Shown here is a 72-nucleotide RNA sequence from Ostreobium quekettii, a member of the family "Small nucleolar RNA snoR60". The literature on the family includes a 2000 paper in J Biol Chem by Barneche et al., "Fibrillarin genes encode both a conserved nucleolar protein and a novel small nucleolar RNA involved in ribosomal RNA methylation in Arabidopsis thaliana". Lineage of the source: Eukaryota > Viridiplantae > Bryopsidales > Ostreobiaceae > Ostreobium. Gene Ontology terms of the family: nucleolus and RNA processing. Pairs were carried over by alignment from the consensus structure, which was predicted with PFOLD. The match comes from Rfam's covariance-model search (43 bits). Rfam classes the family as a C/D-box small nucleolar RNA.

[Rfam]
Nucleotides: 072
Stems, first nucleotide, its partner, number of pairs: 002072004
Number, partner (000 for none) and nucleotide at each position: 001000g002072u003071g004070c005069a006000a007000a008000u009000g010000a011000u012000g013000a014000g015000u016000u017000c018000u019000u020000u021000g022000g023000a024000u025000u026000c027000c028000c029000u030000u031000u032000c033000a034000a035000g036000a037000g038000g039000g040000c041000a042000c043000c044000g045000a046000u047000g048000a049000u050000c051000g052000a053000u054000c055000a056000u057000u058000c059000a060000a061000a062000g063000u064000c065000c066000u067000g068000a069005u070004g071003c072002a